RNA sequence: UAAAAAAUUGACGAUGGAGUUCGCCAUAACCGUCCUAGUGAUUAAUGACUCCUACCAGUGG
Numbered sequence: 001u002a003a004a005a006a007a008u009u010g011a012c013g014a015u016g017g018a019g020u021u022c023g024c025c026a027u028a029a030c031c032g033u034c035c036u037a038g039u040g041a042u043u044a045a046u047g048a049c050u051c052c053u054a055c056c057a058g059u060g061g
Base pairs, nucleotide, nucleotide: 010025012023013022016052017051018050019049020048021047032042033041034040
This 61-nucleotide RNA sequence from Neobacillus bataviensis belongs to the Rfam family "Fluoride riboswitch aptamer (crcB RNA motif)".
Pairs were carried over by alignment from the consensus structure, which is taken from published work.
NCBI's taxonomy places the organism under Bacteria, Bacillota, Bacilli, Bacillaceae, Neobacillus bataviensis.
It scores 41 bits against the family's covariance model.